The family of this 77-nucleotide sequence from Bos taurus is "Small nucleolar RNA SNORD81".
Pairs were carried over by alignment from the consensus structure, which was predicted with PFOLD.
The sequence is in the family's curated seed alignment.
Rfam 15.1 lists 317 matches to the family in 202 species.
A reference for the family is Smith and Steitz (1998), "Classification of gas5 as a multi-small-nucleolar-RNA (snoRNA) host gene and a member of the 5'-terminal oligopyrimidine gene family reveals common features of snoRNA host genes", Mol Cell Biol.
Lineage of the source: Eukaryota > Euteleostomi > Sarcopterygii > Pecora > Bos.
RNA sequence: AAGAAUAUGUGAUGAUCUCAGCCCAACUUGAACUCUCUCACUGAUGCCUUGAUGAUGUUCAAAGAUCUGAUAUUCUU
Numbered sequence: 001a002a003g004a005a006u007a008u009g010u011g012a013u014g015a016u017c018u019c020a021g022c023c024c025a026a027c028u029u030g031a032a033c034u035c036u037c038u039c040a041c042u043g044a045u046g047c048c049u050u051g052a053u054g055a056u057g058u059u060c061a062a063a064g065a066u067c068u069g070a071u072a073u074u075c076u077u
Stems, first nucleotide, its partner, number of pairs: 001077007